[Rfam]
Nucleotides: 128
Base pairs, nucleotide, nucleotide: 003054004053005052006051007050015042016041017040019038020037021036022035023034024033080109081108082107083106087102088101
Number, partner (000 for none) and nucleotide at each position: 001000c002000u003054g004053c005052a006051g007050g008000u009000u010000a011000u012000g013000u014000u015042a016041c017040a018000a019038c020037a021036g022035a023034g024033c025000c026000u027000g028000a029000u030000a031000a032000u033024g034023c035022u036021c037020u038019g039000c040017u041016g042015u043000c044000g045000u046000u047000c048000c049000c050007c051006c052005u053004g054003c055000a056000c057000a058000u059000a060000u061000u062000a063000a064000c065000u066000c067000g068000u069000u070000u071000c072000u073000u074000u075000c076000u077000a078000u079000c080109c081108c082107u083106g084000u085000c086000u087102g088101u089000u090000u091000c092000u093000u094000c095000u096000c097000u098000a099000g100000a101088g102087c103000u104000u105000a106083c107082a108081g109080g110000g111000a112000c113000g114000c115000u116000u117000g118000g119000u120000u121000u122000c123000g124000u125000a126000c127000a128000a

The family of this 128-nucleotide sequence from Polypterus senegalus is "Small nucleolar RNA SNORA63". The match comes from Rfam's covariance-model search (90 bits). It is annotated as an H/ACA-box small nucleolar RNA. Gene Ontology terms of the family: RNA processing and nucleolus. On this family, see Mishra and Eliceiri, Proc Natl Acad Sci U S A 1997: "Three small nucleolar RNAs that are involved in ribosomal RNA precursor processing". About the family: E3 belongs to the H/ACA class of snoRNAs and is involved in the processing of eukaryotic pre-rRNA and has regions of complementarity to 18S rRNA. E3 is encoded in introns in the gene for protein synthesis initiation factor 4AII.